[Rfam]
mir-374 microRNA precursor family: a 69-nucleotide RNA from Ursus maritimus. The match comes from Rfam's covariance-model search (70 bits). Gene Ontology terms of the family: miRNA-mediated post-transcriptional gene silencing and RISC complex. Lineage of the source: Eukaryota > Deuterostomia > Caniformia > Ursidae > Ursus. The family's consensus secondary structure was predicted with PFOLD.
RNA sequence: ACACAGACAAUUACAAUACAACCUGGUAAGUGCUGUAACACUUAUCAGGUUGUAUUAUAAUUCCGGGGG
Numbered sequence: 001a002c003a004c005a006g007a008c009a010a011u012u013a014c015a016a017u018a019c020a021a022c023c024u025g026g027u028a029a030g031u032g033c034u035g036u037a038a039c040a041c042u043u044a045u046c047a048g049g050u051u052g053u054a055u056u057a058u059a060a061u062u063c064c065g066g067g068g069g
Stems, first nucleotide, its partner, number of pairs: 013058001015056007023048003027044006
Dot-bracket structure: ............(.(((((((.(((.((((((......)))))).))).))))))).)...........